Annotation: This 32-nucleotide RNA belongs to the Rfam family "S4-Bacteroidia ribosomal protein leader".
RNA sequence: GAUUACAAAAACCCUCUCUGUAGUCGCGGCUG
Numbered sequence: 001g002a003u004u005a006c007a008a009a010a011a012c013c014c015u016c017u018c019u020g021u022a023g024u025c026g027c028g029g030c031u032g
Stems, first nucleotide, its partner, number of pairs: 001025007